[Rfam]
RNA: Bacterial small signal recognition particle RNA
Organism: Candidatus Photodesmus anomalopis
RNA sequence: GACUCAGUUUUCCGUAACAAUAAGCUUGCUCACCUGGUCAGAUCUGGAAAGAAGCAGCCAAAGCAUGCAGUUUGUGUACGAUAGUUGACUAGAG
Numbered sequence: 001g002a003c004u005c006a007g008u009u010u011u012c013c014g015u016a017a018c019a020a021u022a023a024g025c026u027u028g029c030u031c032a033c034c035u036g037g038u039c040a041g042a043u044c045u046g047g048a049a050a051g052a053a054g055c056a057g058c059c060a061a062a063g064c065a066u067g068c069a070g071u072u073u074g075u076g077u078a079c080g081a082u083a084g085u086u087g088a089c090u091a092g093a094g
Stems, first nucleotide, its partner, number of pairs: 004092001006090003009084002013080002015076001017075004024068002027065004035060004043052003